Shown here is a 73-nucleotide sequence from Caproicibacter fermentans, a member of the family "Fluoride riboswitch aptamer (crcB RNA motif)". A search with the family's covariance model found it, with a score of 36 bits. Lineage of the source: Bacteria > Bacillati > Clostridia > Acutalibacteraceae > Caproicibacter. A reference for the family is Baker et al. (2012), "Widespread genetic switches and toxicity resistance proteins for fluoride", Science.

RNA sequence: CAGAUCAUUAGGGAUGAAGCUCCCCUUGAAAAUGUUCGAAAUGCUGGAAACGGCUGAUGGCUUCUACAGGAAU
Numbered sequence: 001c002a003g004a005u006c007a008u009u010a011g012g013g014a015u016g017a018a019g020c021u022c023c024c025c026u027u028g029a030a031a032a033u034g035u036u037c038g039a040a041a042u043g044c045u046g047g048a049a050a051c052g053g054c055u056g057a058u059g060g061c062u063u064c065u066a067c068a069g070g071a072a073u
Stems, first nucleotide, its partner, number of pairs: 010026004016064006043054004